[Rfam]
RNA: MIR408 microRNA precursor family
RNA sequence: AAGAGGGGACAGAGCAGAGGCUGGGAAGAGGCAGAGCAUGGAUUGAGUUAUAGACAGGGACACGGACUGUUUUGGCUCGACCCUGCACUGCCUCUUCCUCUGCUUCUCCUCCUCCUCCUCCU
Dot-bracket structure: ................(((...(((((.((((((.(((.((...((..............................))...))))).)))))).)))))...))).................